[Rfam]
RNA: mir-5928 microRNA precursor family
Organism: Haemonchus placei
RNA sequence: GGCACGAGUCGCAGUAAAGUAGGUUAGUAGGAUUAGCUGACCAUUCUGAUCUACUCUACUUCGAGUUUGUGCCC
Numbered sequence: 001g002g003c004a005c006g007a008g009u010c011g012c013a014g015u016a017a018a019g020u021a022g023g024u025u026a027g028u029a030g031g032a033u034u035a036g037c038u039g040a041c042c043a044u045u046c047u048g049a050u051c052u053a054c055u056c057u058a059c060u061u062c063g064a065g066u067u068u069g070u071g072c073c074c
Base pairs, nucleotide, nucleotide: 001073002072003071004070005069006068007067008066009065010063011062013060014059015058016057018055019054020053021052022051024049025048026047027046029044031042033040034039